[Rfam]
RNA: terC RNA
Organism: Microvirga tunisiensis
RNA sequence: AUCGGGGUCCGGGCCCCUCUGGCAGUCCUCUCUAGGCUGCGAUGUCGGACUCUCUCA
Numbered sequence: 001a002u003c004g005g006g007g008u009c010c011g012g013g014c015c016c017c018u019c020u021g022g023c024a025g026u027c028c029u030c031u032c033u034a035g036g037c038u039g040c041g042a043u044g045u046c047g048g049a050c051u052c053u054c055u056c057a
Base pairs, nucleotide, nucleotide: 006051007050008049009048010047011046012045022040023039024038025037026036027035